[Rfam]
RNA sequence: AGUAAUCAUACCAUGAUGAAUGAUUUAGCAGAAGAGUUCUUGAAGACUAUAUUCAUCACCCAAUCCUGAUCACUCAAU
Numbered sequence: 001a002g003u004a005a006u007c008a009u010a011c012c013a014u015g016a017u018g019a020a021u022g023a024u025u026u027a028g029c030a031g032a033a034g035a036g037u038u039c040u041u042g043a044a045g046a047c048u049a050u051a052u053u054c055a056u057c058a059c060c061c062a063a064u065c066c067u068g069a070u071c072a073c074u075c076a077a078u
Base pairs, nucleotide, nucleotide: 001074002073003072031039032038033037

Annotation
The record is a 78-nucleotide RNA sequence from Drosophila persimilis, which matches "Small nucleolar RNA CD11" in Rfam. Gene Ontology terms of the family: nucleolus and RNA processing. The base pairs follow the family's consensus structure, which was predicted with ILM. It is annotated as a C/D-box small nucleolar RNA. NCBI's taxonomy places the organism under Eukaryota, Bilateria, Aparaglossata, Drosophila, Sophophora. Rfam's curators put it in the seed alignment.